[Rfam]
RNA sequence: UACAGCGGGUAGUCGCUGUUCCAUGUAAAUGGAGCAGAGGAAAGUCGAGACACGCACACAGAUCUGGGGUCUAUUGGCCGCAGGCUGUGUAAAUUGGUGCCCGGCGCAAGCCGGGGCAGGGCGACCUGACGACGGCAAAAGCGACUCACUGAGUUGUGAGUAGCCAUAAAGUGCCACAGAAACUAUGUCACCGGGCGACCGGUGAGUGCAAGGGUAAACUCCACCUGCGUGCAACCCAAAUAGGCAGGGGCCUUGGCCACCUGCGGGUAGGGGCACCUCGCUGAGCGAGGAAGGAGAGUAUUUCUCCUUAGAUAGAUGACUACUAGAACAGAAUCUCGCUUAUGGCU
Numbered sequence: 001u002a003c004a005g006c007g008g009g010u011a012g013u014c015g016c017u018g019u020u021c022c023a024u025g026u027a028a029a030u031g032g033a034g035c036a037g038a039g040g041a042a043a044g045u046c047g048a049g050a051c052a053c054g055c056a057c058a059c060a061g062a063u064c065u066g067g068g069g070u071c072u073a074u075u076g077g078c079c080g081c082a083g084g085c086u087g088u089g090u091a092a093a094u095u096g097g098u099g100c101c102c103g104g105c106g107c108a109a110g111c112c113g114g115g116g117c118a119g120g121g122c123g124a125c126c127u128g129a130c131g132a133c134g135g136c137a138a139a140a141g142c143g144a145c146u147c148a149c150u151g152a153g154u155u156g157u158g159a160g161u162a163g164c165c166a167u168a169a170a171g172u173g174c175c176a177c178a179g180a181a182a183c184u185a186u187g188u189c190a191c192c193g194g195g196c197g198a199c200c201g202g203u204g205a206g207u208g209c210a211a212g213g214g215u216a217a218a219c220u221c222c223a224c225c226u227g228c229g230u231g232c233a234a235c236c237c238a239a240a241u242a243g244g245c246a247g248g249g250g251c252c253u254u255g256g257c258c259a260c261c262u263g264c265g266g267g268u269a270g271g272g273g274c275a276c277c278u279c280g281c282u283g284a285g286c287g288a289g290g291a292a293g294g295a296g297a298g299u300a301u302u303u304c305u306c307c308u309u310a311g312a313u314a315g316a317u318g319a320c321u322a323c324u325a326g327a328a329c330a331g332a333a334u335c336u337c338g339c340u341u342a343u344g345g346c347u
Base pairs, nucleotide, nucleotide: 004347005346006345007343008324009323010322011321012320013319014318016037017036018035019034020033021032042341043340044339046338047337048336049335050334051231052230053229054228055227056090057089058088059087060086061085096225097224098223099222100115101114102113103112104111105110116130117128118127119126120125131221132220134165135164136163142156143155144154145153171219172218173215174214175213188205189204190203191202192201193200194199235272236271237270276290277289278288279287280286281285291309292308293307294306295305296304
Dot-bracket structure: ...(((((((((((.((((((..........))))))....[[[.[[[[[(((((((((((.......................)))))).....((((((((((....))))))(((((....)))).)((.(((.....((((.......))))......))).....(((((............(((((((....))))))).......)))..)))))))).)))))...(((................................)))...((((((...))))))((((((.......))))))........))))))).........]]]]]]]].).)))